This 35-nucleotide sequence from Tuberibacillus calidus belongs to the Rfam family "L31-Firmicutes ribosomal protein leader". Clan: Ribosomal Protein L31 Leader clan. Rfam classes the family as a cis-regulatory leader. The source organism's lineage runs through Bacteria, Bacillota, Sporolactobacillaceae, Tuberibacillus and Tuberibacillus calidus. A reference for the family is Eckert and Weinberg (2020), "Discovery of 20 novel ribosomal leader candidates in bacteria and archaea", BMC Microbiol. It is one of the family's seed sequences. Pairs were carried over by alignment from the consensus structure, which is taken from published work.
[Rfam]
RNA sequence: CUCUGGUUUGAAAGAUUAACCAGGGCAUAAAGGAG
Numbered sequence: 001c002u003c004u005g006g007u008u009u010g011a012a013a014g015a016u017u018a019a020c021c022a023g024g025g026c027a028u029a030a031a032g033g034a035g
Stems, first nucleotide, its partner, number of pairs: 001025008